[Rfam]
About this RNA
Rfam assigns this 197-nucleotide sequence from Saccharomonospora sp. CUA-673 to the family "Actinobacteria sRNA Ms_IGR-5". The match comes from Rfam's covariance-model search (87 bits). Pairs were carried over by alignment from the consensus structure.
RNA sequence: ACACGAGAAAGGAGGUGGUCCGACGGUGUACAGCUAUAGGACUCGUGAGGUGGCUGUCCGCUAGGACGGCAUGCGGACCACCGUGUGCUGCCUGGCGAAUACCAGGCAGUCACCGGCCCUCGAUGUUCCUGUGGGCGGGUCCACCACGGGCCCCGGCGGCUGACGACGUCGGGGAGUCGCAUCGGGGGCUUACCCCA
Numbered sequence: 001a002c003a004c005g006a007g008a009a010a011g012g013a014g015g016u017g018g019u020c021c022g023a024c025g026g027u028g029u030a031c032a033g034c035u036a037u038a039g040g041a042c043u044c045g046u047g048a049g050g051u052g053g054c055u056g057u058c059c060g061c062u063a064g065g066a067c068g069g070c071a072u073g074c075g076g077a078c079c080a081c082c083g084u085g086u087g088c089u090g091c092c093u094g095g096c097g098a099a100u101a102c103c104a105g106g107c108a109g110u111c112a113c114c115g116g117c118c119c120u121c122g123a124u125g126u127u128c129c130u131g132u133g134g135g136c137g138g139g140u141c142c143a144c145c146a147c148g149g150g151c152c153c154c155g156g157c158g159g160c161u162g163a164c165g166a167c168g169u170c171g172g173g174g175a176g177u178c179g180c181a182u183c184g185g186g187g188g189c190u191u192a193c194c195c196c197a
Stems, first nucleotide, its partner, number of pairs: 014058006059097007067090004072085003115190012128173004
It is annotated as a small RNA.